This 144-nucleotide RNA from Phoenix dactylifera belongs to the Rfam family "Small nucleolar RNA snoR77".
The family has 5 seed sequences and 649 matches in Rfam 15.1.
A search with the family's covariance model found it, with a score of 88 bits.
Rfam classes the family as an H/ACA-box small nucleolar RNA.
Taxonomically the source falls in Phoenix (Eukaryota, Embryophyta, Spermatophyta, Petrosaviidae).
[Rfam]
RNA sequence: AGGCAGCCCCUUUGCCACAUCCACUGGCAUCGGAGGUGUUAUUUUGCUCGGAGAAAACACACAGCUUUUGCUCUUCAGAUUGGCUGAGAGGAAGGGGCUUUUCCCUUUCUGCCCUGAUGCUGGUCUAGUAGGCCUAAGUACAUC
Dot-bracket structure: .((((.((((..(((((.......)))))..)).))))))........................(((..(((....(((((.((...(.((((((((.....)))))))).)......)).)))))....)))..)))......